[Rfam]
RNA sequence: CAUUGAUGUGAUGAUAAGGUUCUUCCGAAUUAUCUUUGUGUAGACCCUAAAUUAUCAGACUACAAUUAUCUGAUCAAUG
Numbered sequence: 001c002a003u004u005g006a007u008g009u010g011a012u013g014a015u016a017a018g019g020u021u022c023u024u025c026c027g028a029a030u031u032a033u034c035u036u037u038g039u040g041u042a043g044a045c046c047c048u049a050a051a052u053u054a055u056c057a058g059a060c061u062a063c064a065a066u067u068a069u070c071u072g073a074u075c076a077a078u079g
Base pairs, nucleotide, nucleotide: 001079002078003077004076005075006074
RNA: Small nucleolar RNA Z155